[Rfam]
Nucleotides: 165
Base pairs, nucleotide, nucleotide: 001016004013005012006011030163031162035158036157040152041151042150043149044148045147046145047144048143049142050141062140063139064138065137066136067135073132074131075130078127079126080125081124082123085111086110087109090105091104092103093102
Number, partner (000 for none) and nucleotide at each position: 001016c002000a003000a004013u005012c006011c007000g008000u009000g010000a011006g012005g013004a014000a015000a016001g017000g018000u019000c020000u021000g022000a023000a024000g025000g026000a027000a028000g029000c030163u031162g032000c033000u034000a035158g036157c037000a038000a039000a040152u041151c042150u043149g044148c045147g046145a047144g048143c049142g050141g051000a052000u053000g054000a055000a056000c057000a058000a059000g060000a061000a062140c063139a064138u065137c066136a067135u068000a069000u070000g071000a072000g073132g074131c075130g076000u077000a078127g079126g080125c081124u082123g083000a084000a085111g086110g087109c088000g089000a090105g091104u092103u093102g094000g095000c096000a097000c098000a099000a100000g101000a102093c103092a104091a105090c106000g107000a108000a109087g110086c111085c112000g113000c114000g115000u116000g117000a118000u119000c120000u121000a122000c123082c124081g125080g126079c127078c128000a129000c130075c131074g132073u133000a134000a135067a136066u137065g138064a139063u140062g141050c142049c143048g144047u145046u146000g147045u148044g149043c150042a151041g152040a153000g154000a155000c156000a157036g158035u159000u160000a161000a162031u163030g164000c165000g
Group II catalytic intron D1-D4-3: a 165-nucleotide RNA from Exilibacterium tricleocarpae. A reference for the family is Bonen and Vogel (2001), "The ins and outs of group II introns", Trends Genet.